[Rfam]
RNA sequence: UAAUAGUGCAGAUAGUUAUACUAUGCUGUAUACCUAUGUAAACCGAAUUAACGUUUAAGCGGCAUGUAAUGUCGUCGGGCAUAGGGAGCCACCUUCGGGUGGCUUUUUUGUUUAG
Numbered sequence: 001u002a003a004u005a006g007u008g009c010a011g012a013u014a015g016u017u018a019u020a021c022u023a024u025g026c027u028g029u030a031u032a033c034c035u036a037u038g039u040a041a042a043c044c045g046a047a048u049u050a051a052c053g054u055u056u057a058a059g060c061g062g063c064a065u066g067u068a069a070u071g072u073c074g075u076c077g078g079g080c081a082u083a084g085g086g087a088g089c090c091a092c093c094u095u096c097g098g099g100u101g102g103c104u105u106u107u108u109u110g111u112u113u114a115g
Stems, first nucleotide, its partner, number of pairs: 007030005012024005033085006043078003046055003059075006086105008
Annotation:
The record is a 115-nucleotide RNA, which matches "DUF3800-I RNA" in Rfam. Actinobacteria, Firmicutes, Fusobacteria, Proteobacteria (1 example), Tenericutes (2 examples).